[Rfam]
RNA: mir-283 microRNA precursor family
Organism: Apis mellifera
RNA sequence: UAAUCUGGUGAUGUAGUCAAAUAUCAGCUGGUAAUUCUGGGAUUUUGACAAUAACCCAGGAUUCUUGCUGGUAUCCGGCUACGAACUGGA
Dot-bracket structure: ............((((((..((((((((.((..((((((((.............)))))))).)).))))))))..))))))........
Numbered sequence: 001u002a003a004u005c006u007g008g009u010g011a012u013g014u015a016g017u018c019a020a021a022u023a024u025c026a027g028c029u030g031g032u033a034a035u036u037c038u039g040g041g042a043u044u045u046u047g048a049c050a051a052u053a054a055c056c057c058a059g060g061a062u063u064c065u066u067g068c069u070g071g072u073a074u075c076c077g078g079c080u081a082c083g084a085a086c087u088g089g090a
Stems, first nucleotide, its partner, number of pairs: 013082006021074008030065002034062008